The record is a 572-nucleotide sequence from Escovopsis weberi, which matches "RNase MRP" in Rfam.
A search with the family's covariance model found it, with a score of 80 bits.
Rfam links the family to the GO terms rRNA processing, ribonuclease MRP complex and ribonuclease MRP activity.
Rfam classes the family as a ribozyme.
Rfam's curators write: RNase MRP is an enzymatically active ribonucleoprotein with two distinct roles in eukaryotes. In mitochondria it plays a direct role in the initiation of mitochondrial DNA replication. In the nucleus it is involved in precursor rRNA processing, where it cleaves the internal transcribed spacer 1 between 18S and 5.8S rRNAs.

RNA sequence: CCCUCGCUCGACAAAUCGCCAUUCGAAGCUUACAGACAGACACUGGGCCUCGCCCAGCGUCGCGCUCGCUUUGGGAGAAAGUCCCCGGACGACUUUCCUCGGAAAGCACGCGGAAACGCACCGCCAUAGAAGCACUGCGGUUGACCUCCUGCGCCUCGGCUCUCAUCGCCGCCCACCCGCCCCGUCUGUCGCUACAUCCGUCUCUACCCCCCCUCGUCUCCUUCUCCUCUCGCUCUACGUGAGCUUCCCGUAUUGUGCACCCAUCUUCGCACCCUCUCUCUGCUGUUGCUCUGUUUCUCCCCUCACGCACCCCAUGGAUGAAGAUACGAGUCCGCGGCGUGGGAGAGGUUCGGAAGUACACAGAGUCGGGGUGCGGACCUGGGUGUCCGCGAGUCGCAAGCGCUCGGUGGGGGAAAAGGUGUGAGGCAUACAGGGCGGAUGGCAGGUGGACGCUGGGUUGCGGCGUGUCUGCAUCGGGUGCUAGAGGAUUUUGUUGUCGAGGUUGAUAGGUAUGCGAUUGCCCGGCCGCAUCUCGGCCGGGUUACUCGAUGGGGCUCAUUCUCGAGGCGAGG
Dot-bracket structure: .((((((((((..((((((...(((((((.........(((.((((((...)))))).)))......)))))).)....[[.[[[[...................................................................................................................................................................................................................(((.((...((((......(((..............................................................................................................................................((....))...)))..)))).)).))).........................)))))).((((((.........)))))).........]]]]]].....)))).))))))

Lineage of the source: Eukaryota > Fungi > saccharomyceta > Hypocreales > Escovopsis.